[Rfam]
RNA sequence: CUCUUAUCGAGAGCGGCAGAGGGACUGGCCCGAUGAAGCCCGGCAACCUAACUUUAUGUAAGCGUAAAGUGAAGGUGCUAAUUCCAGCAAAAUGGUGUAUUCCGUUUUGGUAGAUAAGAG
Numbered sequence: 001c002u003c004u005u006a007u008c009g010a011g012a013g014c015g016g017c018a019g020a021g022g023g024a025c026u027g028g029c030c031c032g033a034u035g036a037a038g039c040c041c042g043g044c045a046a047c048c049u050a051a052c053u054u055u056a057u058g059u060a061a062g063c064g065u066a067a068a069g070u071g072a073a074g075g076u077g078c079u080a081a082u083u084c085c086a087g088c089a090a091a092a093u094g095g096u097g098u099a100u101u102c103c104g105u106u107u108u109g110g111u112a113g114a115u116a117a118g119a120g
Base pairs, nucleotide, nucleotide: 001120002119003118004117005116006115007114008113013041015040016039017038021031022030023029025087026086027085028084042079043078044077045076047075048074049071050070083112088109089108090107091106092105093104094103095102
Source information: The family of this 120-nucleotide RNA sequence from Listeria monocytogenes is "SAM riboswitch aptamer (S box leader)". The SAM riboswitch is found upstream of a number of genes which code for proteins involved in methionine or cysteine biosynthesis in Gram-positive bacteria. The SAM riboswitch acts at the level of transcription termination control. Its family is annotated with regulation of gene expression in the Gene Ontology.